[Rfam]
A member of the RNA family "Plant signal recognition particle RNA" from Papaver nudicaule, 325 nucleotides long. It is annotated as a non-coding RNA gene. The match comes from Rfam's covariance-model search (175 bits). Taxonomically the source falls in Papaver (Eukaryota, Tracheophyta, Papaveraceae, Papaveroideae).
RNA sequence: GACCCCUCUGUAGCGUGAGCUUGUAACUCAAGUGAGGACAUUGAACUGGUUGAACACUGGCCUAGAUACACUAGGUAGGCUCUGGGGUGCACACUAGGUAGGCUCUGGGGUGCAACUGUUGGCUCGCCCGUUCCAAGUUUGGAGUUGGCUUUCGUGGUCUGGGCGAAGGCCUAGGUCAUCUAGUCAUUAGAGCGGUUGGCACUGCGUCAGGCUGGCUUCACAGAGCAGCGACUACUACCCUCUCUUGAGAGUGGAAGGAUAACGAGCCGAUGCACCUCAGUUCCAACCCAGCCCAGUGAGCUGGCCCAGUUGAACAACCAUUUUU
Numbered sequence: 001g002a003c004c005c006c007u008c009u010g011u012a013g014c015g016u017g018a019g020c021u022u023g024u025a026a027c028u029c030a031a032g033u034g035a036g037g038a039c040a041u042u043g044a045a046c047u048g049g050u051u052g053a054a055c056a057c058u059g060g061c062c063u064a065g066a067u068a069c070a071c072u073a074g075g076u077a078g079g080c081u082c083u084g085g086g087g088u089g090c091a092c093a094c095u096a097g098g099u100a101g102g103c104u105c106u107g108g109g110g111u112g113c114a115a116c117u118g119u120u121g122g123c124u125c126g127c128c129c130g131u132u133c134c135a136a137g138u139u140u141g142g143a144g145u146u147g148g149c150u151u152u153c154g155u156g157g158u159c160u161g162g163g164c165g166a167a168g169g170c171c172u173a174g175g176u177c178a179u180c181u182a183g184u185c186a187u188u189a190g191a192g193c194g195g196u197u198g199g200c201a202c203u204g205c206g207u208c209a210g211g212c213u214g215g216c217u218u219c220a221c222a223g224a225g226c227a228g229c230g231a232c233u234a235c236u237a238c239c240c241u242c243u244c245u246u247g248a249g250a251g252u253g254g255a256a257g258g259a260u261a262a263c264g265a266g267c268c269g270a271u272g273c274a275c276c277u278c279a280g281u282u283c284c285a286a287c288c289c290a291g292c293c294c295a296g297u298g299a300g301c302u303g304g305c306c307c308a309g310u311u312g313a314a315c316a317a318c319c320a321u322u323u324u325u
Stems, first nucleotide, its partner, number of pairs: 001039001003037001006019003027036003043324003047320006055312002057309003060305003064302002069298004074293003078284002082280004087276001089275001119270008128258002131256005138248002141245004147185004154179011187192001194239003198235001205230003212223003